The record is a 73-nucleotide sequence from Xanthomonas campestris, which matches "Xanthomonas sRNA sX9" in Rfam. The match comes from Rfam's covariance-model search (72 bits). Rfam 15.1 lists 309 matches to the family in 52 species. NCBI's taxonomy places the organism under Bacteria, Lysobacteraceae, Xanthomonas, Xanthomonas campestris, Xanthomonas campestris pv. campestris. Pairs were carried over by alignment from the consensus structure, which was predicted with RNAalifold.

[Rfam]
RNA sequence: AUGUACCGCCGUACUCCGGUUCCUCCGCGCCGGCCGCACCCACCUGGCGGCUGCUCGCUACGUCUUGUUAGCC
Numbered sequence: 001a002u003g004u005a006c007c008g009c010c011g012u013a014c015u016c017c018g019g020u021u022c023c024u025c026c027g028c029g030c031c032g033g034c035c036g037c038a039c040c041c042a043c044c045u046g047g048c049g050g051c052u053g054c055u056c057g058c059u060a061c062g063u064c065u066u067g068u069u070a071g072c073c
Stems, first nucleotide, its partner, number of pairs: 004013003017032004022027001044071007